[Rfam]
RNA sequence: AUGCAGUGAUGACUAAAAAUAUAACACAUCAUGCAGACAAAAACUGUGGUGACAUUGAAACCCUGAGCAUA
Numbered sequence: 001a002u003g004c005a006g007u008g009a010u011g012a013c014u015a016a017a018a019a020u021a022u023a024a025c026a027c028a029u030c031a032u033g034c035a036g037a038c039a040a041a042a043a044c045u046g047u048g049g050u051g052a053c054a055u056u057g058a059a060a061c062c063c064u065g066a067g068c069a070u071a
Stems, first nucleotide, its partner, number of pairs: 001070004
Rfam assigns this 71-nucleotide RNA from Takifugu bimaculatus to the family "Small nucleolar RNA SNORD63". A reference for the family is Galardi et al. (2002), "Purified box C/D snoRNPs are able to reproduce site-specific 2'-O-methylation of target RNA in vitro", Mol Cell Biol. Lineage of the source: Eukaryota > Chordata > Vertebrata > Clupeocephala > Takifugu. The family's RNA type in Rfam is C/D-box small nucleolar RNA. snoRNA U63 is found in both humans and mice. The family has 23 seed sequences and 795 matches in Rfam 15.1. Rfam links the family to the GO terms nucleolus and RNA processing.